[Rfam]
RNA sequence: AGUGGUUCGGCUCACCCCCCCCGGAGCCGGACCCCGACGACCCCCGUCUUCCCCCCGACGGGGGUCGUCCCUU
Numbered sequence: 001a002g003u004g005g006u007u008c009g010g011c012u013c014a015c016c017c018c019c020c021c022c023g024g025a026g027c028c029g030g031a032c033c034c035c036g037a038c039g040a041c042c043c044c045c046g047u048c049u050u051c052c053c054c055c056c057g058a059c060g061g062g063g064g065u066c067g068u069c070c071c072u073u
Stems, first nucleotide, its partner, number of pairs: 002035001004033010036069013
Dot-bracket structure: .(.((((((((((..........)))))))))).)(((((((((((((........)))))))))))))....
The family of this 73-nucleotide RNA sequence from Salinispora tropica is "6C RNA". Rfam's curators put it in the seed alignment. The source organism's lineage runs through Bacteria, Actinomycetes, Micromonosporaceae, Salinispora and Salinispora tropica.